[Rfam]
RNA sequence: AAUGACGCUUAGAAAUUAGCUUGUAUAAGUUCAUGAUUGGAUGAGCGUGUCUACCAACUGCCGUAACAGUUGACUACAAGUCUUCGGAAUACCCGA
Number, nucleotide and partner (000 for none) at each position: 001a000002a000003u000004g000005a000006c000007g000008c000009u000010u000011a000012g000013a000014a000015a000016u000017u000018a000019g081020c080021u079022u078023g077024u076025a075026u000027a000028a000029g046030u045031u044032c043033a042034u041035g000036a000037u000038u000039g000040g000041a034042u033043g032044a031045g030046c029047g000048u000049g000050u000051c000052u000053a000054c000055c072056a071057a070058c069059u068060g067061c000062c000063g000064u000065a000066a000067c060068a059069g058070u057071u056072g055073a000074c000075u025076a024077c023078a022079a021080g020081u019082c000083u000084u000085c000086g000087g000088a000089a000090u000091a000092c000093c000094c000095g000096a000
RNA: Purine riboswitch aptamer